[Rfam]
RNA sequence: AAGCAACACUCUGUGGCAGAUGAUGAAAACUGUCUGACACAUUUCUAGCUUGCCAUAACAGCAAAGUCUAACCUAUUCAGGUGCUCUCUCCUCUACAGGACAAGACCUUAUAUAGACUUAGACAGU
Numbered sequence: 001a002a003g004c005a006a007c008a009c010u011c012u013g014u015g016g017c018a019g020a021u022g023a024u025g026a027a028a029a030c031u032g033u034c035u036g037a038c039a040c041a042u043u044u045c046u047a048g049c050u051u052g053c054c055a056u057a058a059c060a061g062c063a064a065a066g067u068c069u070a071a072c073c074u075a076u077u078c079a080g081g082u083g084c085u086c087u088c089u090c091c092u093c094u095a096c097a098g099g100a101c102a103a104g105a106c107c108u109u110a111u112a113u114a115g116a117c118u119u120a121g122a123c124a125g126u
Stems, first nucleotide, its partner, number of pairs: 009048002012041004017036006064119007074112003080106001082104001087100003
Rfam assigns this 126-nucleotide RNA sequence from Phyllostomus discolor to the family "Small nucleolar RNA SNORA28". Rfam classes the family as an H/ACA-box small nucleolar RNA. On this family, see Huttenhofer et al., EMBO J 2001: "RNomics: an experimental approach that identifies 201 candidates for novel, small, non-messenger RNAs in mouse". A search with the family's covariance model found it, with a score of 109 bits. Taxonomically the source falls in Phyllostomus (Eukaryota, Opisthokonta, Dipnotetrapodomorpha, Tetrapoda). Clan: SNORA28 clan. ACA28 is a member of the H/ACA class of snoRNA that guide the sites of modification of uridines to pseudouridines. Rfam links the family to the GO terms RNA processing and nucleolus.